This 102-nucleotide RNA from Halalkalibacter okhensis belongs to the Rfam family "Purine riboswitch aptamer".
RNA sequence: AACGAAAAACGAAAUACACCUCAUAUAAUCUUGGAGAUAUGGUCCAUAAGUUUCUACCUGACUACCUUAAAUAGUCGGACUAUGAGGGAAAGUGGGAGAUAC
Numbered sequence: 001a002a003c004g005a006a007a008a009a010c011g012a013a014a015u016a017c018a019c020c021u022c023a024u025a026u027a028a029u030c031u032u033g034g035a036g037a038u039a040u041g042g043u044c045c046a047u048a049a050g051u052u053u054c055u056a057c058c059u060g061a062c063u064a065c066c067u068u069a070a071a072u073a074g075u076c077g078g079a080c081u082a083u084g085a086g087g088g089a090a091a092g093u094g095g096g097a098g099a100u101a102c
Stems, first nucleotide, its partner, number of pairs: 019087007029049001032046004058078007
Dot-bracket structure: ..................(((((((...(..((((.......))))..)........(((((((.......)))))))..)))))))...............